[Rfam]
RNA: U12 minor spliceosomal RNA
Organism: Melipona quadrifasciata
RNA sequence: GUGCCUUAAACUAAUGAGUAAGGAAAAUAUAGAGCUUUGGUGACGCUUAGCUAUGCUAAUUAUAUAAGCGACCAUAUUUUUGAAGGGAUAAAGGUCGUCCCAUAGCAGCGUGAACUACUUUUUCGCGCAGCUGGGUGAAGCGAUCUAUCCC
Numbered sequence: 001g002u003g004c005c006u007u008a009a010a011c012u013a014a015u016g017a018g019u020a021a022g023g024a025a026a027a028u029a030u031a032g033a034g035c036u037u038u039g040g041u042g043a044c045g046c047u048u049a050g051c052u053a054u055g056c057u058a059a060u061u062a063u064a065u066a067a068g069c070g071a072c073c074a075u076a077u078u079u080u081u082g083a084a085g086g087g088a089u090a091a092a093g094g095u096c097g098u099c100c101c102a103u104a105g106c107a108g109c110g111u112g113a114a115c116u117a118c119u120u121u122u123u124c125g126c127g128c129a130g131c132u133g134g135g136u137g138a139a140g141c142g143a144u145c146u147a148u149c150c151c
Base pairs, nucleotide, nucleotide: 004023005022006021007020008019033052034051035050036049039046054070055069056068057067085151086150087149088148089147092146093145094144095143096142097141098140101135104132105131106130108128110126111125112124113123114122